[Rfam]
RNA sequence: UUCUUAUCCAGAGAGGUGGAGGGACUGGCCCUGUGAAACCUCGGCAACAGACUGUCAUAGUACUGUGCCAAUUCCAGUAAGCGCCAAGCUUAGAAGAUAAGAA
Numbered sequence: 001u002u003c004u005u006a007u008c009c010a011g012a013g014a015g016g017u018g019g020a021g022g023g024a025c026u027g028g029c030c031c032u033g034u035g036a037a038a039c040c041u042c043g044g045c046a047a048c049a050g051a052c053u054g055u056c057a058u059a060g061u062a063c064u065g066u067g068c069c070a071a072u073u074c075c076a077g078u079a080a081g082c083g084c085c086a087a088g089c090u091u092a093g094a095a096g097a098u099a100a101g102a103a
Base pairs, nucleotide, nucleotide: 001103002102003101004100005099006098007097008096013042014041015040016039017038021031022030023029025077026076027075028074043069044068045067046066048065049064051061052060053059054058073095078092079091080090081089082088
A member of the RNA family "SAM riboswitch aptamer (S box leader)" from Lentibacillus salicampi, 103 nucleotides long. The family's consensus secondary structure is taken from published work.